[Rfam]
RNA: Histidine operon leader
RNA sequence: UCACCAUCACCAUCACCCAGUCUAGUCUUUCGGGAGAUGAGCGCAUACCCGGGAGAUGAUAAAACUCCCGGAGGUUCAGUUAGAAAUAGCAUACAUAAACCCUCGGGAGACUAAAACUCUCGAGGGUUUUUUCGU
Numbered sequence: 001u002c003a004c005c006a007u008c009a010c011c012a013u014c015a016c017c018c019a020g021u022c023u024a025g026u027c028u029u030u031c032g033g034g035a036g037a038u039g040a041g042c043g044c045a046u047a048c049c050c051g052g053g054a055g056a057u058g059a060u061a062a063a064a065c066u067c068c069c070g071g072a073g074g075u076u077c078a079g080u081u082a083g084a085a086a087u088a089g090c091a092u093a094c095a096u097a098a099a100c101c102c103u104c105g106g107g108a109g110a111c112u113a114a115a116a117c118u119c120u121c122g123a124g125g126g127u128u129u130u131u132u133c134g135u
Base pairs, nucleotide, nucleotide: 009046011039012038013037014036017034018033020031048071049070051069052068053067054066055065095131097129098128099127100126101125102124103123104122105121106120107119108118109117